[Rfam]
RNA sequence: AGGCACUAAAUUUAAGGCCAUAGCAGAAGUGCUCACAGCAUAGCCAUGUCAUAUUCCAACAAAUCUGCGAACUGUGCU
Numbered sequence: 001a002g003g004c005a006c007u008a009a010a011u012u013u014a015a016g017g018c019c020a021u022a023g024c025a026g027a028a029g030u031g032c033u034c035a036c037a038g039c040a041u042a043g044c045c046a047u048g049u050c051a052u053a054u055u056c057c058a059a060c061a062a063a064u065c066u067g068c069g070a071a072c073u074g075u076g077c078u
Base pairs, nucleotide, nucleotide: 013046016045017044018043022078023077024076025075027073029041030040031039050067051066053064054063055062
Shown here is a 78-nucleotide RNA sequence from Alligator sinensis, a member of the family "Mammalian CPEB3 ribozyme". The source organism's lineage runs through Eukaryota, Deuterostomia, Chordata, Crocodylia and Alligator. It scores 35 bits against the family's covariance model. The family's consensus secondary structure is taken from published work.